[Rfam]
RNA: 6S / SsrS RNA
Nucleotides: 187
Base pairs, nucleotide, nucleotide: 005182006181007180008179009178010177011176012174013173014172015171017170018169019168030152031151032150033149035147036146037145038143039142054126055125056124058122059121060120061119065116068115069114070113071112073110079104080103085099086098087097088096
Number, partner (000 for none) and nucleotide at each position: 001000u002000a003000c004000a005182a006181g007180c008179u009178g010177c011176g012174u013173u014172g015171c016000u017170c018169g019168u020000a021000a022000u023000g024000a025000u026000a027000a028000u029000a030152a031151g032150u033149u034000u035147u036146a037145a038143c039142c040000u041000u042000u043000a044000a045000g046000c047000u048000g049000u050000a051000a052000u053000a054126g055125g056124g057000a058122g059121u060120u061119u062000u063000a064000a065116a066000u067000u068115g069114a070113a071112u072000g073110u074000g075000a076000a077000a078000u079104g080103u081000c082000a083000u084000g085099c086098c087097u088096c089000c090000a091000c092000g093000a094000u095000a096088g097087a098086g099085g100000a101000a102000g103080a104079c105000a106000g107000g108000a109000a110073g111000g112071a113070u114069u115068c116065u117000g118000c119061g120060a121059a122058c123000a124056c125055c126054c127000a128000c129000u130000u131000u132000g133000a134000g135000g136000a137000g138000u139000g140000g141000u142039g143038g144000u145037u146036u147035a148000a149033a150032a151031c152030u153000u154000u155000a156000u157000u158000a159000c160000g161000a162000a163000a164000g165000g166000u167000u168019a169018c170017g171015g172014c173013a174012a175000a176011u177010g178009u179008g180007g181006c182005u183000c184000u185000a186000a187000a